RNA sequence: UGACAGUGGUGAUGAUGACGACAGUUGUCUUUUCCUGAAACAUCCAUGUGGGUUUUCAGUCACUACCUCAUCUGAACAGUCA
Numbered sequence: 001u002g003a004c005a006g007u008g009g010u011g012a013u014g015a016u017g018a019c020g021a022c023a024g025u026u027g028u029c030u031u032u033u034c035c036u037g038a039a040a041c042a043u044c045c046a047u048g049u050g051g052g053u054u055u056u057c058a059g060u061c062a063c064u065a066c067c068u069c070a071u072c073u074g075a076a077c078a079g080u081c082a
Stems, first nucleotide, its partner, number of pairs: 002081003006077002

This 82-nucleotide RNA sequence from Anabas testudineus belongs to the Rfam family "Small nucleolar RNA SNORD11B".
Rfam 15.1 lists 733 matches to the family in 632 species.
The source organism's lineage runs through Eukaryota, Metazoa, Neopterygii, Anabantaria and Anabas.
The family is grouped with related families in Rfam's "SNORD11 clan".
Its family is annotated with RNA processing and nucleolus in the Gene Ontology.
Pairs were carried over by alignment from the consensus structure, which was predicted with WAR.